Rfam assigns this 79-nucleotide sequence from Vulpes vulpes to the family "Small nucleolar RNA U2-19". By type it is a C/D-box small nucleolar RNA. The organism belongs to Vulpes, within Eukaryota. It scores 76 bits against the family's covariance model. Gene Ontology terms of the family: nucleolus and RNA processing. The family has 29 seed sequences and 1,147 matches in Rfam 15.1.
[Rfam]
RNA sequence: GAUCAAUGAUGAAAAUGACCAAAAAUGAGCAUCAGAAGAAUCUUCCAAUCUACCUGAUGGAUGAUCUCUAGUUCUGAGA
Numbered sequence: 001g002a003u004c005a006a007u008g009a010u011g012a013a014a015a016u017g018a019c020c021a022a023a024a025a026u027g028a029g030c031a032u033c034a035g036a037a038g039a040a041u042c043u044u045c046c047a048a049u050c051u052a053c054c055u056g057a058u059g060g061a062u063g064a065u066c067u068c069u070a071g072u073u074c075u076g077a078g079a
Stems, first nucleotide, its partner, number of pairs: 030059004037051003041048001
Overview: For this family Rfam cites "Guide RNAs with 5' Caps and Novel Box C/D snoRNA-like Domains for Modification of snRNAs in Metazoa" (Tycowski et al., Curr Biol, 2004).